This 91-nucleotide RNA from Gordonia jinhuaensis belongs to the Rfam family "Selenocysteine transfer RNA". Taxonomically the source falls in Gordonia (Bacteria, Actinomycetes, Mycobacteriales, Gordoniaceae). Gene Ontology term of the family: triplet codon-amino acid adaptor activity.

[Rfam]
RNA sequence: GGAGGCGUCUGGGUCCUGGUGGGCCUCCCGGUCUUCAAAACCGAGGAGAUCGAGUAUCUCGGUCUGGCGGGUUCGAUUCCCGUCCGCCUCC
Numbered sequence: 001g002g003a004g005g006c007g008u009c010u011g012g013g014u015c016c017u018g019g020u021g022g023g024c025c026u027c028c029c030g031g032u033c034u035u036c037a038a039a040a041c042c043g044a045g046g047a048g049a050u051c052g053a054g055u056a057u058c059u060c061g062g063u064c065u066g067g068c069g070g071g072u073u074c075g076a077u078u079c080c081c082g083u084c085c086g087c088c089u090c091c
Stems, first nucleotide, its partner, number of pairs: 001091007011026006027045001029043004047065005068082004